[Rfam]
RNA: caulobacter sRNA CC2171
Nucleotides: 162
Stems, first nucleotide, its partner, number of pairs: 016023002031132006042059001045056003049053001066100001068098001069095001071094003077088004107124001109122001135162012
Number, partner (000 for none) and nucleotide at each position: 001000c002000a003000a004000c005000a006000a007000a008000c009000g010000a011000a012000a013000g014000g015000a016023g017022g018000u019000g020000a021000u022017c023016c024000a025000g026000u027000g028000u029000c030000u031132c032131a033130u034129u035128g036127c037000c038000c039000c040000a041000a042059g043000g044000c045056g046055u047054c048000c049053a050000c051000c052000g053049u054047g055046a056045c057000u058000g059042c060000a061000a062000g063000c064000u065000g066100g067000a068098u069095c070000a071094u072093c073092g074000c075000c076000g077088g078087c079086g080085c081000c082000a083000c084000c085080g086079c087078g088077u089000a090000g091000g092073c093072g094071a095069g096000u097000c098068a099000c100066c101000a102000c103000a104000u105000c106000g107124c108000a109122g110000c111000a112000g113000c114000c115000g116000g117000u118000c119000a120000g121000c122109c123000g124107g125000c126000a127036g128035c129034a130033a131032u132031g133000g134000a135162a136161g137160g138159c139158c140157u141156c142155g143154g144153g145152g146151g147000g148000a149000a150000a151146c152145c153144c154143c155142c156141g157140g158139g159138g160137c161136c162135u